[Rfam]
RNA sequence: GGGGCUGAACGGUUUCGACUGCGUACGUUGAGCUAGGGGAAGCGUGUCGGUGCAGGCAAGAGACCACCGUAAGCGUCGCUGCAACCAAUUAAGCGCCGAGACCACUCAGCGCGAGUACGCCCUCGCUGCCUAAGUAGCGAUUGCGUCUCUGUCAGACCGGGUUUGCUCUCGACCCGGAUCCUGGCAUCGACUAGAGAGCUUUACCGUUCGGCUCGGUCGCGGAGUCGGAUGGGACAUCAAACAGCGACUGGGAUCGUCAUCCCGCCUUGUUCGCGAGAACGGGAGAUCCAAGUAGAGACAUAGCGAACUGCACACGGAGAAGCCCUGGCGAGGCGGCGGAGGACCCGGGUUCGAUUCCCGGCAGCUCCACCG
Number, nucleotide and partner (000 for none) at each position: 001g368002g367003g366004g365005c364006u363007g362008a000009a000010c000011g000012g000013u000014u000015u000016c000017g000018a000019c341020u340021g000022c338023g337024u336025a000026c000027g000028u332029u000030g000031a000032g329033c328034u327035a326036g325037g324038g323039g000040a000041a000042g000043c316044g315045u314046g313047u312048c069049g068050g067051u066052g065053c000054a000055g000056g082057c081058a080059a000060g000061a000062g000063a000064c000065c052066a051067c050068c049069g048070u000071a000072a000073g000074c000075g000076u000077c000078g000079c000080u058081g057082c056083a000084a000085c000086c000087a000088a000089u000090u000091a000092a000093g000094c000095g000096c000097c000098g000099a000100g000101a000102c000103c000104a000105c000106u000107c000108a000109g000110c000111g000112c000113g000114a000115g000116u000117a000118c000119g000120c000121c000122c000123u140124c139125g138126c137127u136128g135129c134130c000131u000132a000133a000134g129135u128136a127137g126138c125139g124140a123141u000142u000143g000144c000145g000146u000147c000148u000149c000150u186151g185152u184153c183154a182155g181156a000157c177158c176159g175160g174161g173162u172163u171164u000165g199166c198167u197168c196169u195170c194171g163172a162173c161174c160175c159176g158177g157178a000179u000180c000181c155182u154183g153184g152185c151186a150187u000188c000189g000190a000191c000192u000193a000194g170195a169196g168197a167198g166199c165200u000201u000202u000203a000204c232205c231206g230207u229208u228209c227210g226211g225212c224213u000214c000215g249216g248217u247218c246219g245220c244221g000222g000223a000224g212225u211226c210227g209228g208229a207230u206231g205232g204233g000234a000235c000236a000237u000238c000239a000240a000241a000242c000243a000244g220245c219246g218247a217248c216249u215250g000251g289252g288253a287254u286255c285256g000257u283258c282259a000260u000261c000262c000263c000264g000265c000266c277267u276268u000269g308270u307271u306272c305273g000274c000275g301276a267277g266278a000279a000280c000281g000282g258283g257284a000285g255286a254287u253288c252289c251290a000291a000292g000293u000294a000295g000296a000297g000298a000299c000300a000301u275302a000303g000304c000305g272306a271307a270308c269309u000310g000311c000312a047313c046314a045315c044316g043317g000318a000319g000320a000321a000322g000323c038324c037325c036326u035327g034328g033329c032330g000331a000332g028333g000334c000335g000336g024337c023338g022339g000340a020341g019342g000343a000344c000345c361346c360347g359348g358349g357350u000351u000352c000353g000354a000355u000356u000357c349358c348359c347360g346361g345362c007363a006364g005365c004366u003367c002368c001369a000370c000371c000372g000
Background
The record is a 372-nucleotide RNA sequence from Rhodococcus coprophilus, which matches "transfer-messenger RNA" in Rfam. Bacterial tmRNA, also known as 10Sa RNA or SsrA, is named for its dual tRNA and mRNA-like properties. Its role is to liberate the mRNA from a stalled ribosome. To accomplish this part of the tmRNA is used as a reading frame that ends in a translation stop signal. The broken mRNA is replaced in the ribosome by the tmRNA and translation of the tmRNA leads to addition of a proteolysis tag to the incomplete protein enabling recognition by a protease. The base pairs follow the family's consensus structure, which is taken from published work. The source organism's lineage runs through Bacteria, Actinomycetota, Mycobacteriales, Nocardiaceae and Rhodococcus. A search with the family's covariance model found it, with a score of 136 bits. Its Rfam clan is "tRNA clan".